[Rfam]
RNA sequence: AAACAUUCCUUUGGGGAGUAGCCUCUCUGUUAACAGAGAUGAUUGUCAACAUAAUUGAAGCUUAAUCUUCGUGGCAAUCAUGACUCACAUUCGUAUGAGUUU
Numbered sequence: 001a002a003a004c005a006u007u008c009c010u011u012u013g014g015g016g017a018g019u020a021g022c023c024u025c026u027c028u029g030u031u032a033a034c035a036g037a038g039a040u041g042a043u044u045g046u047c048a049a050c051a052u053a054a055u056u057g058a059a060g061c062u063u064a065a066u067c068u069u070c071g072u073g074g075c076a077a078u079c080a081u082g083a084c085u086c087a088c089a090u091u092c093g094u095a096u097g098a099g100u101u102u
Stems, first nucleotide, its partner, number of pairs: 026037003039081010056071005
Shown here is a 102-nucleotide RNA from Veronia pacifica, a member of the family "Manganese Mn2+ riboswitch aptamer (yybP-ykoY)". The family has 29 seed sequences and 1,126 matches in Rfam 15.1. About the family: This RNA was originally discovered in E. coli during a large scale screen and was named SraF. The family was later found to exist upstream of related families of protein genes in many bacteria, including the the yybP and ykoK genes in B. subtilis.